RNA sequence: GAGCAUCCGUCGGGGGGCCCAUUGGGCUGAGAGGUGCUUGCACUGACCCGUCGAACCUGAUCCGGGCAAUGCCGGCGUAGGGAACGGGUACAUAUGGCCA
Numbered sequence: 001g002a003g004c005a006u007c008c009g010u011c012g013g014g015g016g017g018c019c020c021a022u023u024g025g026g027c028u029g030a031g032a033g034g035u036g037c038u039u040g041c042a043c044u045g046a047c048c049c050g051u052c053g054a055a056c057c058u059g060a061u062c063c064g065g066g067c068a069a070u071g072c073c074g075g076c077g078u079a080g081g082g083a084a085c086g087g088g089u090a091c092a093u094a095u096g097g098c099c100a
Base pairs, nucleotide, nucleotide: 006088007087008086009085010084011050012049013048014047016044017027018026019025020024034043035042036041056081057080058079059078062075063074064073065072
Overview: The record is a 100-nucleotide RNA sequence from Thalassobacter sp. 16PALIMAR09, which matches "TPP riboswitch aptamer (THI element)" in Rfam. The family's consensus secondary structure is taken from published work. A search with the family's covariance model found it, with a score of 82 bits.